MIR1886 microRNA precursor family: a 52-nucleotide RNA from Capsicum baccatum. Pairs were carried over by alignment from the consensus structure, which was predicted with RNAalifold. Rfam 15.1 lists 1,053 matches to the family in 6 species. The source organism's lineage runs through Eukaryota, Streptophytina, Magnoliopsida, Gunneridae and Capsicum. Gene Ontology terms of the family: miRNA-mediated post-transcriptional gene silencing and RISC complex.
Nucleotides: 052
Stems, first nucleotide, its partner, number of pairs: 001050006008043004013038005018029003
Number, partner (000 for none) and nucleotide at each position: 001050u002049g003048a004047g005046a006045u007000a008043a009042a010041a011040u012000u013038a014037g015036c016035g017034u018029u019028u020027g021000a022000a023000u024000a025000u026000g027020u028019g029018a030000u031000u032000u033000a034017a035016c036015g037014c038013u039000u040011a041010u042009u043008u044000c045006a046005u047004c048003u049002c050001a051000u052000g